[Rfam]
RNA sequence: AAAAUAUCAAUGACAAGAAUUAGUAAACUUAAAAACAAACUUUAAGAGAGUCAUAUGUUUGCUGGGAGUAUGAUAGUUAUGAUUAAGUUGAAUGGAUCUUCGAGAUGUUUAGAGGAAUUUUAGUAUUCUAAAUCGUAAUUCUUACGUUACAAGAAAGAGAUACAAAGAAUUUUCUUUGUAACAUUAGGUGGUACCGCGAUAUAUUCGUCCUAUAA
Numbered sequence: 001a002a003a004a005u006a007u008c009a010a011u012g013a014c015a016a017g018a019a020u021u022a023g024u025a026a027a028c029u030u031a032a033a034a035a036c037a038a039a040c041u042u043u044a045a046g047a048g049a050g051u052c053a054u055a056u057g058u059u060u061g062c063u064g065g066g067a068g069u070a071u072g073a074u075a076g077u078u079a080u081g082a083u084u085a086a087g088u089u090g091a092a093u094g095g096a097u098c099u100u101c102g103a104g105a106u107g108u109u110u111a112g113a114g115g116a117a118u119u120u121u122a123g124u125a126u127u128c129u130a131a132a133u134c135g136u137a138a139u140u141c142u143u144a145c146g147u148u149a150c151a152a153g154a155a156a157g158a159g160a161u162a163c164a165a166a167g168a169a170u171u172u173u174c175u176u177u178g179u180a181a182c183a184u185u186a187g188g189u190g191g192u193a194c195c196g197c198g199a200u201a202u203a204u205u206c207g208u209c210c211u212a213u214a215a
Stems, first nucleotide, its partner, number of pairs: 007105002015100004026089006039077003050074006108132007134146003162179007185212004196208004
The family of this 215-nucleotide sequence from Clostridium perfringens is "T-box leader". Uncharged tRNA acts as the effector for transcription antitermination of genes in the T-box leader family. The family's RNA type in Rfam is cis-regulatory leader.